[Rfam]
RNA sequence: ACAUGAAAAAGGCAAACUCAUCGAAAGGUGAAGACGCAAAGCUGUGAGUCUAAGGAGAAAUCUAUGAUCGUCAAGCUACCGAA
Numbered sequence: 001a002c003a004u005g006a007a008a009a010a011g012g013c014a015a016a017c018u019c020a021u022c023g024a025a026a027g028g029u030g031a032a033g034a035c036g037c038a039a040a041g042c043u044g045u046g047a048g049u050c051u052a053a054g055g056a057g058a059a060a061u062c063u064a065u066g067a068u069c070g071u072c073a074a075g076c077u078a079c080c081g082a083a
Base pairs, nucleotide, nucleotide: 012037013036018031019030020029021028022027040077041076042075043074045073046072047071048068049067050066055062056061